[Rfam]
RNA: Bacterial RNase P class B
RNA sequence: CGUUCAGGUAAUCGCUGUAUGUACCCAUACAGAGGAAAGUCCAUGCUCGCACAGCCUGAGACGGCUGUAGUGUUCGUGUCUGACGAAACCAUAAGUCAGAGCAGCUUCGUUUCGGAGCUGACGGCGGGGAAACAGCCUGUGUCCUUCCGGAUAUGGCUGGAGUCCCCUGAACAGUGCCACAGUGACGUAGUCCGGCUGGAAACGGCCGGAGUGGAACGCGGUAAACCCCUCGAGCGAGAAACCCAAAAUUAGGUAGGGGCGCCUUUCGGAAGAAACUCAACGGAACGAAAGGGCAGAAUUUUUUCUGCAGAUAGAUGAUUACCACCCGAGUGCAAGGUGAACAGCCGCUGGCAGCACAAGGGAACAGAACAUGGCUUACACGA
Numbered sequence: 001c002g003u004u005c006a007g008g009u010a011a012u013c014g015c016u017g018u019a020u021g022u023a024c025c026c027a028u029a030c031a032g033a034g035g036a037a038a039g040u041c042c043a044u045g046c047u048c049g050c051a052c053a054g055c056c057u058g059a060g061a062c063g064g065c066u067g068u069a070g071u072g073u074u075c076g077u078g079u080c081u082g083a084c085g086a087a088a089c090c091a092u093a094a095g096u097c098a099g100a101g102c103a104g105c106u107u108c109g110u111u112u113c114g115g116a117g118c119u120g121a122c123g124g125c126g127g128g129g130a131a132a133c134a135g136c137c138u139g140u141g142u143c144c145u146u147c148c149g150g151a152u153a154u155g156g157c158u159g160g161a162g163u164c165c166c167c168u169g170a171a172c173a174g175u176g177c178c179a180c181a182g183u184g185a186c187g188u189a190g191u192c193c194g195g196c197u198g199g200a201a202a203c204g205g206c207c208g209g210a211g212u213g214g215a216a217c218g219c220g221g222u223a224a225a226c227c228c229c230u231c232g233a234g235c236g237a238g239a240a241a242c243c244c245a246a247a248a249u250u251a252g253g254u255a256g257g258g259g260c261g262c263c264u265u266u267c268g269g270a271a272g273a274a275a276c277u278c279a280a281c282g283g284a285a286c287g288a289a290a291g292g293g294c295a296g297a298a299u300u301u302u303u304u305c306u307g308c309a310g311a312u313a314g315a316u317g318a319u320u321a322c323c324a325c326c327c328g329a330g331u332g333c334a335a336g337g338u339g340a341a342c343a344g345c346c347g348c349u350g351g352c353a354g355c356a357c358a359a360g361g362g363a364a365c366a367g368a369a370c371a372u373g374g375c376u377u378a379c380a381c382g383a
Stems, first nucleotide, its partner, number of pairs: 003383002007323007015032006037377003041374005046238005051068006074233003078229001079100006101122001102120008123228002126167004134158004141152003174226002176222003191210008242258003262292007293308006325362003330357004